[Rfam]
A member of the RNA family "azaaromatic riboswitch aptamer (yjdF RNA)" from Parageobacillus caldoxylosilyticus, 106 nucleotides long.

RNA sequence: CGUAGACAGCGUAAAAACACAGUCCCGGUUGGUAGUCCGGGCGCACUCGGAAACGAGUGUCAGUAAUCUUCCCCUCCUUGGGAUGUCCAUCGCUGUUGGCAAUUUC
Number, nucleotide and partner (000 for none) at each position: 001c000002g000003u000004a000005g097006a096007c095008a094009g093010c092011g091012u000013a000014a000015a000016a000017a000018c000019a000020c000021a000022g042023u041024c000025c040026c039027g038028g037029u000030u000031g000032g000033u000034a000035g000036u000037c028038c027039g026040g025041g023042c022043g060044c059045a058046c057047u056048c055049g000050g000051a000052a000053a000054c000055g048056a047057g046058u045059g044060u043061c000062a000063g000064u000065a000066a000067u000068c000069u000070u083071c082072c081073c080074c000075u000076c000077c000078u000079u000080g073081g072082g071083a070084u000085g000086u000087c000088c000089a000090u000091c011092g010093c009094u008095g007096u006097u005098g000099g000100c000101a000102a000103u000104u000105u000106c000